[Rfam]
RNA sequence: GCACCUGAUAGAGGUUGCGGAAACGAUCAGUACUCCACGGUAUACGCCGGCAAGCGGCUGCGGAGGAAAGGCAAUUCCGCCGAAGCACAGUUCGGUUGCCGCCGGGCUGAAGCUGGGACUUCGCUGAAUAAGCGUCGGACUGUCACAUUUAUGUGGAGAGCUAUCGAAGGC
Numbered sequence: 001g002c003a004c005c006u007g008a009u010a011g012a013g014g015u016u017g018c019g020g021a022a023a024c025g026a027u028c029a030g031u032a033c034u035c036c037a038c039g040g041u042a043u044a045c046g047c048c049g050g051c052a053a054g055c056g057g058c059u060g061c062g063g064a065g066g067a068a069a070g071g072c073a074a075u076u077c078c079g080c081c082g083a084a085g086c087a088c089a090g091u092u093c094g095g096u097u098g099c100c101g102c103c104g105g106g107c108u109g110a111a112g113c114u115g116g117g118a119c120u121u122c123g124c125u126g127a128a129u130a131a132g133c134g135u136c137g138g139a140c141u142g143u144c145a146c147a148u149u150u151a152u153g154u155g156g157a158g159a160g161c162u163a164u165c166g167a168a169g170g171c
Stems, first nucleotide, its partner, number of pairs: 006166006017080006025072001033065004038060003084114003088109008115141002119137001122134004143156005
The record is a 171-nucleotide RNA sequence from Firmicutes bacterium CAG:240, which matches "Lysine riboswitch aptamer" in Rfam. A search with the family's covariance model found it, with a score of 86 bits.